RNA sequence: GGUUUAAAGGGUCCGUAGGCGGAUUAAUAAGUCAGUGGUGAAAGUCUGCAGCUCAACUGUAGAACUGCCAUUGAUACUGUUAGUCUUGAAUUACUAUGAAGUGGUUAGAAUAUGUAGUGUAGCGGUGAAAUGCAUAGAUAUUACAUAGAAUACCGAUUGCGAAGGCAGAUCACUAAUAGUAUAUUGACGCUGAUGGACGAAAGCGUGGGUAGCGAACAGGAUUAGAUACCCUGGUAGUCCACGCCGUAAACGAUGGUCACUAGCUGUUCGGGAGCAAUCCUGAGUGGCUAAGCGAAAGUGAUAAGUGACCCACCUGGGGAGUACGUUCGCAAGAAUGAAACUCAAAGGAAU
Numbered sequence: 001g002g003u004u005u006a007a008a009g010g011g012u013c014c015g016u017a018g019g020c021g022g023a024u025u026a027a028u029a030a031g032u033c034a035g036u037g038g039u040g041a042a043a044g045u046c047u048g049c050a051g052c053u054c055a056a057c058u059g060u061a062g063a064a065c066u067g068c069c070a071u072u073g074a075u076a077c078u079g080u081u082a083g084u085c086u087u088g089a090a091u092u093a094c095u096a097u098g099a100a101g102u103g104g105u106u107a108g109a110a111u112a113u114g115u116a117g118u119g120u121a122g123c124g125g126u127g128a129a130a131u132g133c134a135u136a137g138a139u140a141u142u143a144c145a146u147a148g149a150a151u152a153c154c155g156a157u158u159g160c161g162a163a164g165g166c167a168g169a170u171c172a173c174u175a176a177u178a179g180u181a182u183a184u185u186g187a188c189g190c191u192g193a194u195g196g197a198c199g200a201a202a203g204c205g206u207g208g209g210u211a212g213c214g215a216a217c218a219g220g221a222u223u224a225g226a227u228a229c230c231c232u233g234g235u236a237g238u239c240c241a242c243g244c245c246g247u248a249a250a251c252g253a254u255g256g257u258c259a260c261u262a263g264c265u266g267u268u269c270g271g272g273a274g275c276a277a278u279c280c281u282g283a284g285u286g287g288c289u290a291a292g293c294g295a296a297a298g299u300g301a302u303a304a305g306u307g308a309c310c311c312a313c314c315u316g317g318g319g320a321g322u323a324c325g326u327u328c329g330c331a332a333g334a335a336u337g338a339a340a341c342u343c344a345a346a347g348g349a350a351u
Stems, first nucleotide, its partner, number of pairs: 001314003009311001011198004016192001018191003022085007030078002032074009045063007089185003092181006100174007107151001111147008122133003159166002203244006212238002217233004255310006263288011292299002316343003325336004